[Rfam]
RNA sequence: GGGGGUGUCCUGGCUUCGACGGGGGCAGUGAGAUGACUUGGUGCAUGCCGAGGGGGCAGCUUUCCUCGUUAAUCCAGCAGCAAACUCAUAGUUGCCAACGACGACAACUACGCUCUGGCCGCUUAAGGCCUAGCCCCGAACCCACUUGUGCUCAUGCUCGUCGGUGUAGGGUCAUUAUCAUGAGAUCGCCGAACGCUGCCGCCUGGCGGUUCUAGGCUAAAUCAAUCAGGCUGGUUCCGCGGUGCGCCUUGCCCAUCGUGCUUGUCGCGGAACGAGAUCGAACGGUGGGCUACGCAUGUAGAUCCAGGCGUUGAACGCCUUCGGACGCGGGUUCGACUCCCGCCACCUCCACCA
Numbered sequence: 001g002g003g004g005g006u007g008u009c010c011u012g013g014c015u016u017c018g019a020c021g022g023g024g025g026c027a028g029u030g031a032g033a034u035g036a037c038u039u040g041g042u043g044c045a046u047g048c049c050g051a052g053g054g055g056g057c058a059g060c061u062u063u064c065c066u067c068g069u070u071a072a073u074c075c076a077g078c079a080g081c082a083a084a085c086u087c088a089u090a091g092u093u094g095c096c097a098a099c100g101a102c103g104a105c106a107a108c109u110a111c112g113c114u115c116u117g118g119c120c121g122c123u124u125a126a127g128g129c130c131u132a133g134c135c136c137c138g139a140a141c142c143c144a145c146u147u148g149u150g151c152u153c154a155u156g157c158u159c160g161u162c163g164g165u166g167u168a169g170g171g172u173c174a175u176u177a178u179c180a181u182g183a184g185a186u187c188g189c190c191g192a193a194c195g196c197u198g199c200c201g202c203c204u205g206g207c208g209g210u211u212c213u214a215g216g217c218u219a220a221a222u223c224a225a226u227c228a229g230g231c232u233g234g235u236u237c238c239g240c241g242g243u244g245c246g247c248c249u250u251g252c253c254c255a256u257c258g259u260g261c262u263u264g265u266c267g268c269g270g271a272a273c274g275a276g277a278u279c280g281a282a283c284g285g286u287g288g289g290c291u292a293c294g295c296a297u298g299u300a301g302a303u304c305c306a307g308g309c310g311u312u313g314a315a316c317g318c319c320u321u322c323g324g325a326c327g328c329g330g331g332u333u334c335g336a337c338u339c340c341c342g343c344c345a346c347c348u349c350c351a352c353c354a
Base pairs, nucleotide, nucleotide: 001350002349003348004347005346006345007344020323021322022321023320024319025318026317029314032312033311034310035309037308038307039306040305041304044298045297046296047295048294049068050067051066052065053064056081057080059078060077061076115133116132117130118129119128120127135171136170137169139167141164142163144161145160151184152183153182154181155180156179188217189216190215192213201231202230203229204228205227234273235272236271237270238269239268240267241266242265243264245260246259247258251290252289253288254287255286256285257284327343328342329341330340331339